[Rfam]
RNA: mir-9193 microRNA precursor family
RNA sequence: CGGGGGGGGGAGGUGUCCCUCAACCUGGAUUGUGAGAGGGUGCAGGCCAGGUGAGGGACCCCACUUCUUGCCCC
Numbered sequence: 001c002g003g004g005g006g007g008g009g010g011a012g013g014u015g016u017c018c019c020u021c022a023a024c025c026u027g028g029a030u031u032g033u034g035a036g037a038g039g040g041u042g043c044a045g046g047c048c049a050g051g052u053g054a055g056g057g058a059c060c061c062c063a064c065u066u067c068u069u070g071c072c073c074c
Stems, first nucleotide, its partner, number of pairs: 003072002006069001008066003012062002015059008024051002027048002030045005